RNA sequence: AGAUAACCGAUUUCCUCUGAUGCUUAGAGCCAGCUGCAGCCUUCUAGCACCAUCUGAAAUCGGUUAUGG
Numbered sequence: 001a002g003a004u005a006a007c008c009g010a011u012u013u014c015c016u017c018u019g020a021u022g023c024u025u026a027g028a029g030c031c032a033g034c035u036g037c038a039g040c041c042u043u044c045u046a047g048c049a050c051c052a053u054c055u056g057a058a059a060u061c062g063g064u065u066a067u068g069g
Base pairs, nucleotide, nucleotide: 003067004066005064007063008062009061010060011059012058013057014056018052019051021049022048025046026045027044028043
Dot-bracket structure: ..(((.((((((((...((.((..((((..............)))).)).))...))))))))).))..